[Rfam]
RNA sequence: UUGUUAUCACGAAAGCUGGAGGGAAUAGACCCUAUGAAAGCUUAGCAACCUCUCGCCCUUGCGGAAAGGUGCUACAUUCUAUUCCGAUACUAUCGGAAGCAGAUAACGU
Numbered sequence: 001u002u003g004u005u006a007u008c009a010c011g012a013a014a015g016c017u018g019g020a021g022g023g024a025a026u027a028g029a030c031c032c033u034a035u036g037a038a039a040g041c042u043u044a045g046c047a048a049c050c051u052c053u054c055g056c057c058c059u060u061g062c063g064g065a066a067a068g069g070u071g072c073u074a075c076a077u078u079c080u081a082u083u084c085c086g087a088u089a090c091u092a093u094c095g096g097a098a099g100c101a102g103a104u105a106a107c108g109u
Base pairs, nucleotide, nucleotide: 002108003107004106005105006104007103008102013043014042015041016040017039021032022031023030026081027080028079029078044073045072046071047070049069050068051065052064053063077101082098083097084096085095086094087093
SAM riboswitch aptamer (S box leader): a 109-nucleotide RNA from Flavobacteria bacterium BAL38. The organism belongs to Flavobacteriales, within Bacteria. The base pairs follow the family's consensus structure, which is taken from published work.